A member of the RNA family "DUF805b RNA" from Flavisolibacter ginsenosidimutans, 36 nucleotides long. Taxonomically the source falls in Flavisolibacter (Bacteria, Bacteroidota, Chitinophagia, Chitinophagaceae). The family's RNA type in Rfam is cis-regulatory element. The family is grouped with related families in Rfam's "DUF805 clan". The base pairs follow the family's consensus structure, which is taken from published work. It scores 41 bits against the family's covariance model.
[Rfam]
Nucleotides: 036
Stems, first nucleotide, its partner, number of pairs: 002021004010035003
Number, partner (000 for none) and nucleotide at each position: 001000a002021a003020c004019c005018g006000g007000g008000u009000a010035g011034c012033c013000g014000a015000a016000a017000a018005c019004g020003g021002u022000a023000u024000c025000a026000a027000a028000g029000a030000g031000u032000a033012g034011g035010c036000a